Rfam assigns this 80-nucleotide RNA from Pelodiscus sinensis to the family "mir-17 microRNA precursor family". Pairs were carried over by alignment from the consensus structure, which was predicted with RNAalifold. The organism belongs to Pelodiscus, within Eukaryota. About the family: This family represents the microRNA (miRNA) precursor mir-17, family, which includes mir-20, mir-91, and mir-103. miRNAs are transcribed as ~70nt precursors (modelled here) and subsequently processed by the Dicer enzyme to give a ~22nt product. Its family is annotated with RISC complex and miRNA-mediated post-transcriptional gene silencing in the Gene Ontology. It scores 73 bits against the family's covariance model.
RNA sequence: CUAGCAGUGUCAAAGUGCUCAUAGUGCAGGUAGUCUUUGAAUUGGAUCUACUGUAAUGUGGGCACUUAUAGUACUGCCAG
Numbered sequence: 001c002u003a004g005c006a007g008u009g010u011c012a013a014a015g016u017g018c019u020c021a022u023a024g025u026g027c028a029g030g031u032a033g034u035c036u037u038u039g040a041a042u043u044g045g046a047u048c049u050a051c052u053g054u055a056a057u058g059u060g061g062g063c064a065c066u067u068a069u070a071g072u073a074c075u076g077c078c079a080g
Stems, first nucleotide, its partner, number of pairs: 004077004009072002013067011025055003029052005